[Rfam]
RNA: Rhodo-rpoB RNA
RNA sequence: CGGACGGGGGCGCGCCUGUGGGAUGGCGUGCCAGAUGGUCCUCCUCGACGACCCAUUCGCAAGCCCUGGCCCCCGGUGCCCGUCGGGAACCAAG
Numbered sequence: 001c002g003g004a005c006g007g008g009g010g011c012g013c014g015c016c017u018g019u020g021g022g023a024u025g026g027c028g029u030g031c032c033a034g035a036u037g038g039u040c041c042u043c044c045u046c047g048a049c050g051a052c053c054c055a056u057u058c059g060c061a062a063g064c065c066c067u068g069g070c071c072c073c074c075g076g077u078g079c080c081c082g083u084c085g086g087g088a089a090c091c092a093a094g
Stems, first nucleotide, its partner, number of pairs: 002041004010031007065094001067092003072087004